[Rfam]
RNA sequence: UUUAAUUGUGAUGAGUCUACAAACAUGUAAUUAUUUGUGGGUAUGAUGGGACAUUAUUGAACAUCCAAGGGACUGCGUUAUU
Numbered sequence: 001u002u003u004a005a006u007u008g009u010g011a012u013g014a015g016u017c018u019a020c021a022a023a024c025a026u027g028u029a030a031u032u033a034u035u036u037g038u039g040g041g042u043a044u045g046a047u048g049g050g051a052c053a054u055u056a057u058u059g060a061a062c063a064u065c066c067a068a069g070g071g072a073c074u075g076c077g078u079u080a081u082u
Stems, first nucleotide, its partner, number of pairs: 003080004
RNA: Small nucleolar RNA SNORD25